[Rfam]
RNA sequence: GGAAUGGAUGACUAGGGUUCCGGCCCGCGCGAGCGGGUGGCUGGUCCGAGAGUCAUCGACCUCUGGCGAGGUUACACGGCGGGAUAAAAGCCCGGGAGAA
Numbered sequence: 001g002g003a004a005u006g007g008a009u010g011a012c013u014a015g016g017g018u019u020c021c022g023g024c025c026c027g028c029g030c031g032a033g034c035g036g037g038u039g040g041c042u043g044g045u046c047c048g049a050g051a052g053u054c055a056u057c058g059a060c061c062u063c064u065g066g067c068g069a070g071g072u073u074a075c076a077c078g079g080c081g082g083g084a085u086a087a088a089a090g091c092c093c094g095g096g097a098g099a100a
Stems, first nucleotide, its partner, number of pairs: 007057006015047002020044002022041001023038006058073006075095001077098001081093003
Dot-bracket structure: ......((((((..((...(((((((((....))))))..).)).))....))))))((((((....)))))).(.[...(((.......))).)..]..
A member of the RNA family "Guanidine-I riboswitch aptamer" from Thauera sp. 27, 100 nucleotides long.
This family represents a conserved RNA structure found upstream of the ykkC and yxkD genes in Bacillus subtilis and related genes in other bacteria. The function of this family is unclear although it has been suggested that it may function to switch on efflux pumps and detoxification systems in response to harmful environmental molecules.
Rfam 15.1 lists 1,509 matches to the family in 1,281 species.
Taxonomically the source falls in Thauera (Bacteria, Pseudomonadota, Betaproteobacteria, Zoogloeaceae).